[Rfam]
RNA: Ribosomal S15 leader
Organism: gamma proteobacterium HTCC5015
RNA sequence: CUUCUGGACUGGAUCCGUUGCCGGUUGGAGUCGAACUUUGAAUAGAUAUAGCUACGGAGAACAUCAUGCUAUCAACUGAAGAAAAAGCCGCCAUCCUGAAAGAUUAUGGCCGCGCUGAA
Number, nucleotide and partner (000 for none) at each position: 001c000002u000003u000004c000005u000006g000007g026008a025009c024010u023011g022012g021013a000014u000015c000016c000017g000018u000019u000020g000021c012022c011023g010024g009025u008026u007027g000028g000029a000030g000031u000032c000033g000034a000035a000036c000037u000038u000039u000040g000041a000042a000043u000044a000045g000046a000047u000048a072049u071050a070051g069052c000053u000054a000055c000056g000057g000058a000059g000060a000061a000062c000063a000064u000065c000066a000067u000068g000069c051070u050071a049072u048073c000074a000075a000076c000077u000078g000079a000080a000081g000082a000083a000084a000085a000086a000087g000088c000089c000090g000091c000092c000093a000094u000095c000096c000097u000098g000099a000100a000101a000102g000103a000104u000105u000106a000107u000108g000109g000110c000111c000112g000113c000114g000115c000116u000117g000118a000119a000